[Rfam]
RNA sequence: AGUAUCUGUUCUUUAUAGUGUGAUAACUAUAACGUUAUUCAAUGAAUAACUUGUUAUCUCGCUUAUUUUUUACUGGGGAAGGUGUUCUUGAGGGCUUGCUCUCACCACCUUCGAGGGUUUGCUCGACCUUACACUACUGUCGAGUUGAGCCCACCUGCA
Dot-bracket structure: ............((((((........)))))).(((((((...)))))))...........................(((((((......((((....))))...)))))))..((((((.((((((...........))))))..)))))).......

The record is a 159-nucleotide RNA from Synchytrium endobioticum, which matches "U2 spliceosomal RNA" in Rfam. On this family, see Zwieb, Nucleic Acids Res 1997: "The uRNA database". Taxonomically the source falls in Synchytrium (Eukaryota, chytridiomyceta, Synchytriales, Synchytriaceae). Rfam links the family to the GO terms mRNA branch site recognition, U2 snRNP and pre-mRNA branch point binding. A search with the family's covariance model found it, with a score of 108 bits. Rfam 15.1 lists 71,512 matches to the family in 2,642 species. The family's consensus secondary structure is taken from published work.